The family of this 178-nucleotide RNA sequence from Pleurocapsa sp. PCC 7327 is "Antisense RNA which regulates isiA expression". The match comes from Rfam's covariance-model search (115 bits). The source organism's lineage runs through Bacteria, Bacillati, Cyanophyceae, Pleurocapsaceae and Pleurocapsa. Pairs were carried over by alignment from the consensus structure, which was predicted with PFOLD. Rfam 15.1 lists 3,397 matches to the family in 659 species.
[Rfam]
Nucleotides: 178
Base pairs, nucleotide, nucleotide: 136175137174138173139172140171141170144169145168146167147166148165
Number, partner (000 for none) and nucleotide at each position: 001000g002000a003000u004000a005000g006000c007000c008000g009000u010000a011000g012000a013000u014000a015000g016000u017000u018000a019000a020000g021000g022000g023000g024000u025000u026000g027000a028000g029000a030000g031000u032000c033000g034000g035000g036000u037000c038000g039000g040000u041000g042000a043000c044000g045000a046000c047000g048000c049000g050000a051000a052000c053000u054000u055000c056000u057000c058000c059000g060000a061000u062000g063000g064000u065000g066000g067000a068000g069000u070000c071000g072000u073000a074000c075000a076000g077000u078000c079000c080000g081000c082000c083000c084000c085000a086000a087000a088000a089000c090000a091000u092000g093000g094000c095000u096000u097000u098000a099000g100000c101000a102000a103000c104000g105000a106000g107000c108000a109000g110000c111000a112000a113000g114000g115000c116000a117000c118000c119000u120000g121000c122000g123000c124000c125000g126000a127000g128000a129000a130000a131000u132000a133000a134000u135000a136175a137174a138173u139172g140171a141170u142000g143000u144169c145168c146167c147166a148165a149000a150000a151000u152000c153000a154000a155000a156000c157000c158000a159000a160000g161000u162000u163000g164000u165148u166147u167146g168145g169144g170141g171140u172139c173138g174137u175136u176000c177000c178000a